[Rfam]
This 160-nucleotide RNA from Hibiscus trionum belongs to the Rfam family "MIR396 microRNA precursor family". A reference for the family is Jones-Rhoades and Bartel (2004), "Computational identification of plant microRNAs and their targets, including a stress-induced miRNA", Mol Cell. Rfam 15.1 lists 744 matches to the family in 207 species. Gene Ontology terms of the family: RISC complex and miRNA-mediated post-transcriptional gene silencing.
RNA sequence: GAUCAUGCUUUUCCACGGCUUUCUUGAACUUUCUUUCUCUACUUAAUUACUCCAUCACAAUAUACAUAUACAUACAUACAUAUAUAUAUGUAUGUAUGUAUGUAUGUAUGUAUGUAUGUAUGGCAUGAAAGCUCAAGAAAGCUGUGGGAGAACAUGAUGG
Numbered sequence: 001g002a003u004c005a006u007g008c009u010u011u012u013c014c015a016c017g018g019c020u021u022u023c024u025u026g027a028a029c030u031u032u033c034u035u036u037c038u039c040u041a042c043u044u045a046a047u048u049a050c051u052c053c054a055u056c057a058c059a060a061u062a063u064a065c066a067u068a069u070a071c072a073u074a075c076a077u078a079c080a081u082a083u084a085u086a087u088a089u090g091u092a093u094g095u096a097u098g099u100a101u102g103u104a105u106g107u108a109u110g111u112a113u114g115u116a117u118g119u120a121u122g123g124c125a126u127g128a129a130a131g132c133u134c135a136a137g138a139a140a141g142c143u144g145u146g147g148g149a150g151a152a153c154a155u156g157a158u159g160g
Stems, first nucleotide, its partner, number of pairs: 003157005013147003017143006024136004029131005